[Rfam]
RNA sequence: CGAACGCGCGUGGGAGAGUCCGCACACGCGGCGCCGAAGGGGCAAUUCCUCCCCGGAACCUCUCAGGCACCCGGACCACGCGAGCGAG
Numbered sequence: 001c002g003a004a005c006g007c008g009c010g011u012g013g014g015a016g017a018g019u020c021c022g023c024a025c026a027c028g029c030g031g032c033g034c035c036g037a038a039g040g041g042g043c044a045a046u047u048c049c050u051c052c053c054c055g056g057a058a059c060c061u062c063u064c065a066g067g068c069a070c071c072c073g074g075a076c077c078a079c080g081c082g083a084g085c086g087a088g
Base pairs, nucleotide, nucleotide: 007082008081009080010079011078012077013076020031021030022029023028033068034067035066036064037063040062041061042060046056047055
Overview
Shown here is an 88-nucleotide RNA sequence from Aeromicrobium terrae, a member of the family "Glycine riboswitch aptamer".